Source information
The family of this 118-nucleotide RNA from Halobacillus sp. BBL2006 is "SAM riboswitch aptamer (S box leader)". The SAM riboswitch is found upstream of a number of genes which code for proteins involved in methionine or cysteine biosynthesis in Gram-positive bacteria. The SAM riboswitch acts at the level of transcription termination control. The predicted structure consists of a complex stem-loop region followed by a single stem loop terminator region. An alternative and mutually exclusive form involves bases in the 3' segment of helix 1 with those in the 5' region of helix 5 to form a structure termed the anti-terminator form. This entry represents the conserved core of the complex structure involving helices 1-4.
RNA sequence: UUCUUAUCUAGAGAGGUGGAGGGACUGGCCCUACGAUACCUCGGCAGCGGGACUGAUGAUGAAUCAUCAGGAACUGUGCCAAUUCCAGCAGGUGCUUUAUGCACUUGAAAGAUGAGAA
Numbered sequence: 001u002u003c004u005u006a007u008c009u010a011g012a013g014a015g016g017u018g019g020a021g022g023g024a025c026u027g028g029c030c031c032u033a034c035g036a037u038a039c040c041u042c043g044g045c046a047g048c049g050g051g052a053c054u055g056a057u058g059a060u061g062a063a064u065c066a067u068c069a070g071g072a073a074c075u076g077u078g079c080c081a082a083u084u085c086c087a088g089c090a091g092g093u094g095c096u097u098u099a100u101g102c103a104c105u106u107g108a109a110a111g112a113u114g115a116g117a118a
Stems, first nucleotide, its partner, number of pairs: 001118008013042005021031003025088004043080004048076002053070005084110001089107006